RNA sequence: AGUGGAAGUCCGGCACUCAACUGAACAUGUUAGAGAGAAGAAAAAAAGAACUAGCGUGUCCAGUUGAGAGCCGGACGACCACGUACUUUUUGUAGAACGG
Numbered sequence: 001a002g003u004g005g006a007a008g009u010c011c012g013g014c015a016c017u018c019a020a021c022u023g024a025a026c027a028u029g030u031u032a033g034a035g036a037g038a039a040g041a042a043a044a045a046a047a048g049a050a051c052u053a054g055c056g057u058g059u060c061c062a063g064u065u066g067a068g069a070g071c072c073g074g075a076c077g078a079c080c081a082c083g084u085a086c087u088u089u090u091u092g093u094a095g096a097a098c099g100g
Stems, first nucleotide, its partner, number of pairs: 002082004008076007086099001088097001
RNA: Bacterial large subunit ribosomal RNA, nucleotides 615 to 714